[Rfam]
Plastid-rpl20 3UTR RNA: an 83-nucleotide RNA sequence from Musa balbisiana. Rfam 15.1 lists 587 matches to the family in 315 species. The base pairs follow the family's consensus structure, which was predicted with LocARNA. The literature on the family includes a 2023 paper in Plant Commun by Richter et al., "Retrograde signaling in plants: A critical review focusing on the GUN pathway and beyond". By type it is a cis-regulatory element. Plastid rpl20 is a non-coding RNA (ncRNA) recognised in plastids. It was found in the three prime untranslated region (3UTR) of rpl20 gene, it presence in the 3UTR region sugest a role in transcript maduration. A search with the family's covariance model found it, with a score of 63 bits.
RNA sequence: ACAGAAUUCCCGGAGAAGGAACUCCGGGAAAUUAGAAUAAAAAUAAAUUAAGAUAGUACAUAGGAAUGAACGAUAUUUUCAAA
Numbered sequence: 001a002c003a004g005a006a007u008u009c010c011c012g013g014a015g016a017a018g019g020a021a022c023u024c025c026g027g028g029a030a031a032u033u034a035g036a037a038u039a040a041a042a043a044u045a046a047a048u049u050a051a052g053a054u055a056g057u058a059c060a061u062a063g064g065a066a067u068g069a070a071c072g073a074u075a076u077u078u079u080c081a082a083a
Stems, first nucleotide, its partner, number of pairs: 007030009068080003